[Rfam]
RNA: Archaeal large subunit ribosomal RNA, nucleotides 1721 to 2077
RNA sequence: CAGGUUAAUCUGGCUAAGGGAAUUCGGCAAAUUAGCCUCGUAACUUCGGGAGAAGAGGUGCCUGCUUUGAAGAAAGCAGGUCGCAGUGACUAGGGAGCUCUAACUGUCUAAUAACAACAUAGGAGAUUGCAAACCCGAAAGGGCUAGUACAAUCUCUGAGUCCUGCCCAGUGCAGGUACCUGAAGACCCGGUUCAACGGGAAGAAGGGCCUGUCAACGGCGGGGGUAACUAUGACCCUCUUAAGGUAGCGUAGUACCUUGCCGCUUAAUUGGCGGCUUGCAUGAAUGGAACAAUGAGAGCUCUACUGUCCCUAGCCAGAACCUGGUGAAACUUUCCUCCUAGUGCAGAGACUAGGGA
Numbered sequence: 001c002a003g004g005u006u007a008a009u010c011u012g013g014c015u016a017a018g019g020g021a022a023u024u025c026g027g028c029a030a031a032u033u034a035g036c037c038u039c040g041u042a043a044c045u046u047c048g049g050g051a052g053a054a055g056a057g058g059u060g061c062c063u064g065c066u067u068u069g070a071a072g073a074a075a076g077c078a079g080g081u082c083g084c085a086g087u088g089a090c091u092a093g094g095g096a097g098c099u100c101u102a103a104c105u106g107u108c109u110a111a112u113a114a115c116a117a118c119a120u121a122g123g124a125g126a127u128u129g130c131a132a133a134c135c136c137g138a139a140a141g142g143g144c145u146a147g148u149a150c151a152a153u154c155u156c157u158g159a160g161u162c163c164u165g166c167c168c169a170g171u172g173c174a175g176g177u178a179c180c181u182g183a184a185g186a187c188c189c190g191g192u193u194c195a196a197c198g199g200g201a202a203g204a205a206g207g208g209c210c211u212g213u214c215a216a217c218g219g220c221g222g223g224g225g226u227a228a229c230u231a232u233g234a235c236c237c238u239c240u241u242a243a244g245g246u247a248g249c250g251u252a253g254u255a256c257c258u259u260g261c262c263g264c265u266u267a268a269u270u271g272g273c274g275g276c277u278u279g280c281a282u283g284a285a286u287g288g289a290a291c292a293a294u295g296a297g298a299g300c301u302c303u304a305c306u307g308u309c310c311c312u313a314g315c316c317a318g319a320a321c322c323u324g325g326u327g328a329a330a331c332u333u334u335c336c337u338c339c340u341a342g343u344g345c346a347g348a349g350a351c352u353a354g355g356g357a
Base pairs, nucleotide, nucleotide: 001324002323003322004321009319010318011317012316013315014314015313016312018310019309020308035059036058037057038056039055044049060081061080062079063078064077065076066075067074068073082086094303095302096301097300098299099298100297101295102294105119106118107117122157123156124155125154126153127152128151129150130147134143135142136141161289162288163287165220166219167218170217171216172213173212174211175210176209179208180207181206187200188199189198190197221239222238223237224236225235226234240244260276261275262274263273264272265271338355339354340353341352342351